Rfam assigns this 92-nucleotide sequence from a Paracoccaceae bacterium to the family "Glycine riboswitch aptamer". About the family: This family represents the bacterial glycine riboswitch.
[Rfam]
RNA sequence: GGGUGCAGCGACGGGAGAAUUCGGGCGCGACCCGAUGCCGAAGGAGCAACCGCCCCAGGAAACUCUCAGGCCACAGGGACCCCGCUGCAGAC
Numbered sequence: 001g002g003g004u005g006c007a008g009c010g011a012c013g014g015g016a017g018a019a020u021u022c023g024g025g026c027g028c029g030a031c032c033c034g035a036u037g038c039c040g041a042a043g044g045a046g047c048a049a050c051c052g053c054c055c056c057a058g059g060a061a062a063c064u065c066u067c068a069g070g071c072c073a074c075a076g077g078g079a080c081c082c083c084g085c086u087g088c089a090g091a092c
Stems, first nucleotide, its partner, number of pairs: 006087005013081002021035004037071003040067002044065003050058001

Rfam links the family to the GO term glycine biosynthetic process.
Lineage of the source: Bacteria > Pseudomonadati > Alphaproteobacteria > Rhodobacterales > Paracoccaceae.
The literature on the family includes a 2004 paper in Science by Mandal et al., "A glycine-dependent riboswitch that uses cooperative binding to control gene expression".